[Rfam]
RNA sequence: GGCACAAAUGAUGAUCAUAAGGGACUUAAUACUGACACAUGAUGUCACUUUUGAGCAGAAGCUGAUGUGC
Numbered sequence: 001g002g003c004a005c006a007a008a009u010g011a012u013g014a015u016c017a018u019a020a021g022g023g024a025c026u027u028a029a030u031a032c033u034g035a036c037a038c039a040u041g042a043u044g045u046c047a048c049u050u051u052u053g054a055g056c057a058g059a060a061g062c063u064g065a066u067g068u069g070c
Stems, first nucleotide, its partner, number of pairs: 002070005
Dot-bracket structure: .(((((...........................................................)))))
RNA: Small nucleolar RNA SNORD82
Organism: Manacus vitellinus